[Rfam]
RNA sequence: GGCGAUAAAUGGCUAUCGGAAUAAACCCAUCGGACCCGGGGGCGGUACCCGGCGCCUCCACCCCAGCCGGUUGCGCGACGGCGCGAGCCGGCUGCGGCGGGGGCGAAAUAGGAUCGACGAGGGCGUAAAGGAUGUGCUUUCGCUCGGCAUGGUUCCGCCGUUAUCGGGCCAUUAGUGUAGUUGCGAAUGACAACUAUGCGCCGGUUGCUCAGGCCGCGUGA
Numbered sequence: 001g002g003c004g005a006u007a008a009a010u011g012g013c014u015a016u017c018g019g020a021a022u023a024a025a026c027c028c029a030u031c032g033g034a035c036c037c038g039g040g041g042g043c044g045g046u047a048c049c050c051g052g053c054g055c056c057u058c059c060a061c062c063c064c065a066g067c068c069g070g071u072u073g074c075g076c077g078a079c080g081g082c083g084c085g086a087g088c089c090g091g092c093u094g095c096g097g098c099g100g101g102g103g104c105g106a107a108a109u110a111g112g113a114u115c116g117a118c119g120a121g122g123g124c125g126u127a128a129a130g131g132a133u134g135u136g137c138u139u140u141c142g143c144u145c146g147g148c149a150u151g152g153u154u155c156c157g158c159c160g161u162u163a164u165c166g167g168g169c170c171a172u173u174a175g176u177g178u179a180g181u182u183g184c185g186a187a188u189g190a191c192a193a194c195u196a197u198g199c200g201c202c203g204g205u206u207g208c209u210c211a212g213g214c215c216g217c218g219u220g221a
Stems, first nucleotide, its partner, number of pairs: 001144005014134004026123003030120003036052005053105007145160004
Dot-bracket structure: (((((........((((........(((.(((...(((((.......)))))(((((((.......................................)))))))............)))))).......)))).....)))))((((........)))).............................................................
permuted transfer-messenger RNA: a 221-nucleotide sequence from Blastochloris tepida. The base pairs follow the family's consensus structure, which is taken from published work. The literature on the family includes a 1996 paper in RNA by Williams and Bartel, "Phylogenetic analysis of tmRNA secondary structure". A search with the family's covariance model found it, with a score of 140 bits. Lineage of the source: Bacteria > Pseudomonadati > Alphaproteobacteria > Blastochloridaceae > Blastochloris. By type it is a non-coding RNA gene.